RNA sequence: GGCAAUAAACGAGCCUAUGGAAUAGACGUUUCGGACCCGGGGGCGGUACCCGGCGCCUCCACCAUAAGAAUAAUGUUCCUUAUUCGUGUUUAAAGACCGGUUUUGAGCAUGUUUUUAUGAUGGGGGCGAAAUUAGGAUCGACGUGCGUGAUAAAGAUAGUCUUUUUGCCCAGCAUGAUACCGCUGUGACGGGUCAAACUUGAUAAAUGCUAACGAUAACGAAGCAUUUGCUGUAGCAGCUUAA
Numbered sequence: 001g002g003c004a005a006u007a008a009a010c011g012a013g014c015c016u017a018u019g020g021a022a023u024a025g026a027c028g029u030u031u032c033g034g035a036c037c038c039g040g041g042g043g044c045g046g047u048a049c050c051c052g053g054c055g056c057c058u059c060c061a062c063c064a065u066a067a068g069a070a071u072a073a074u075g076u077u078c079c080u081u082a083u084u085c086g087u088g089u090u091u092a093a094a095g096a097c098c099g100g101u102u103u104u105g106a107g108c109a110u111g112u113u114u115u116u117a118u119g120a121u122g123g124g125g126g127c128g129a130a131a132u133u134a135g136g137a138u139c140g141a142c143g144u145g146c147g148u149g150a151u152a153a154a155g156a157u158a159g160u161c162u163u164u165u166u167g168c169c170c171a172g173c174a175u176g177a178u179a180c181c182g183c184u185g186u187g188a189c190g191g192g193u194c195a196a197a198c199u200u201g202a203u204a205a206a207u208g209c210u211a212a213c214g215a216u217a218a219c220g221a222a223g224c225a226u227u228u229g230c231u232g233u234a235g236c237a238g239c240u241u242a243a
Stems, first nucleotide, its partner, number of pairs: 001169005015159004027147003032143002037053005054128007170185004
Dot-bracket structure: (((((.........((((........(((..((...(((((.......)))))(((((((.............................................................))))))).............)).)))........)))).....)))))((((........))))..........................................................

permuted transfer-messenger RNA: a 243-nucleotide sequence from Emcibacter nanhaiensis.
A search with the family's covariance model found it, with a score of 149 bits.
Gene Ontology term of the family: RNA catabolic process.
By type it is a non-coding RNA gene.
On this family, see Felden et al., RNA 1997: "Probing the structure of the Escherichia coli 10Sa RNA (tmRNA)".
NCBI's taxonomy places the organism under Bacteria, Pseudomonadati, Alphaproteobacteria, Emcibacteraceae, Emcibacter.